[Rfam]
RNA sequence: ACGAUCAGAAGCUUGCGUCAGGGGCGAAUCAGAUUAUUAGGUUUGAGUAAAAUCAUUUUCUAAUCUUCGGUAUUAUUUUUACACCCUUGGAGAAGGUCUGAGAUAAACCAACUGCUUUGCAUAUUUUAAUCUGGGUAACUCGAUUUUUUUGUGUUAAGUUGCUCUUGCUGAGCGCUCCGUUAAAAAUUCAGCUUGUUGUUUCCUUGGUUUCAAUAAGUUGCAGCGGAGCGGGAGUUACCAGAAAUUUGGCCGAAAGGAUUUGUUGUGCGUGUCAAUAAAACGACGCGUAUAAUUCUCCUGGAGGUUUUGGAAAAGGCUCCCUGGUGGUUAGUUCAUUUGCAGUAUUCUAUCAUCUAUCAGGUGAUAUGGUAGGUCAAAUGAAUAUUAUGUAGUGCGAUACGCGAGGCGAGAUUUGCUACUAUUCUUAAGGGAACAGUUUCUCGUAACUCAAUUCAGACUACUCUUUGGUCGU
Numbered sequence: 001a002c003g004a005u006c007a008g009a010a011g012c013u014u015g016c017g018u019c020a021g022g023g024g025c026g027a028a029u030c031a032g033a034u035u036a037u038u039a040g041g042u043u044u045g046a047g048u049a050a051a052a053u054c055a056u057u058u059u060c061u062a063a064u065c066u067u068c069g070g071u072a073u074u075a076u077u078u079u080u081a082c083a084c085c086c087u088u089g090g091a092g093a094a095g096g097u098c099u100g101a102g103a104u105a106a107a108c109c110a111a112c113u114g115c116u117u118u119g120c121a122u123a124u125u126u127u128a129a130u131c132u133g134g135g136u137a138a139c140u141c142g143a144u145u146u147u148u149u150u151g152u153g154u155u156a157a158g159u160u161g162c163u164c165u166u167g168c169u170g171a172g173c174g175c176u177c178c179g180u181u182a183a184a185a186a187u188u189c190a191g192c193u194u195g196u197u198g199u200u201u202c203c204u205u206g207g208u209u210u211c212a213a214u215a216a217g218u219u220g221c222a223g224c225g226g227a228g229c230g231g232g233a234g235u236u237a238c239c240a241g242a243a244a245u246u247u248g249g250c251c252g253a254a255a256g257g258a259u260u261u262g263u264u265g266u267g268c269g270u271g272u273c274a275a276u277a278a279a280a281c282g283a284c285g286c287g288u289a290u291a292a293u294u295c296u297c298c299u300g301g302a303g304g305u306u307u308u309g310g311a312a313a314a315g316g317c318u319c320c321c322u323g324g325u326g327g328u329u330a331g332u333u334c335a336u337u338u339g340c341a342g343u344a345u346u347c348u349a350u351c352a353u354c355u356a357u358c359a360g361g362u363g364a365u366a367u368g369g370u371a372g373g374u375c376a377a378a379u380g381a382a383u384a385u386u387a388u389g390u391a392g393u394g395c396g397a398u399a400c401g402c403g404a405g406g407c408g409a410g411a412u413u414u415g416c417u418a419c420u421a422u423u424c425u426u427a428a429g430g431g432a433a434c435a436g437u438u439u440c441u442c443g444u445a446a447c448u449c450a451a452u453u454c455a456g457a458c459u460a461c462u463c464u465u466u467g468g469u470c471g472u
Stems, first nucleotide, its partner, number of pairs: 001472004007466003012405007021088004098456005106329004160174005175228006230321007248306003406444006
Description: Rfam assigns this 472-nucleotide RNA sequence from Smittium mucronatum to the family "Nuclear RNase P". Rfam's curators write: Ribonuclease P (RNase P) is a ubiquitous endoribonuclease, found in archaea, bacteria and eukarya as well as chloroplasts and mitochondria. Its best characterised activity is the generation of mature 5'-ends of tRNAs by cleaving the 5'-leader elements of precursor-tRNAs. On this family, see Brown, Nucleic Acids Res 1999: "The Ribonuclease P Database".